[Rfam]
RNA sequence: UUCGGACCCGGUGAGAAUCCGGGUGGCUCUUUCGGCCGCCGAUCCGCCGAACCCUG
Numbered sequence: 001u002u003c004g005g006a007c008c009c010g011g012u013g014a015g016a017a018u019c020c021g022g023g024u025g026g027c028u029c030u031u032u033c034g035g036c037c038g039c040c041g042a043u044c045c046g047c048c049g050a051a052c053c054c055u056g
Base pairs, nucleotide, nucleotide: 006024007023008022009021010020011019012017031051032050033049034048035047036046
The record is a 56-nucleotide RNA sequence from Allobosea sp. PAMC 26642, which matches "sul1 RNA" in Rfam. It scores 67 bits against the family's covariance model. It is annotated as a riboswitch.